[Rfam]
RNA: Streptomyces-metH RNA
RNA sequence: GCUGUCCACGCCGUGGAAUGGGGAACGCCUCUCCCGGCCCGGAAGCUACGCUGGCCGGGUGCGCUCCCUGAAGGGGGGCGCAAAGCCGACAGCCGUCGCAACCACGGGAGCACCUCCAUG
Numbered sequence: 001g002c003u004g005u006c007c008a009c010g011c012c013g014u015g016g017a018a019u020g021g022g023g024a025a026c027g028c029c030u031c032u033c034c035c036g037g038c039c040c041g042g043a044a045g046c047u048a049c050g051c052u053g054g055c056c057g058g059g060u061g062c063g064c065u066c067c068c069u070g071a072a073g074g075g076g077g078g079c080g081c082a083a084a085g086c087c088g089a090c091a092g093c094c095g096u097c098g099c100a101a102c103c104a105c106g107g108g109a110g111c112a113c114c115u116c117c118a119u120g
Stems, first nucleotide, its partner, number of pairs: 060082004065077004085099002088097003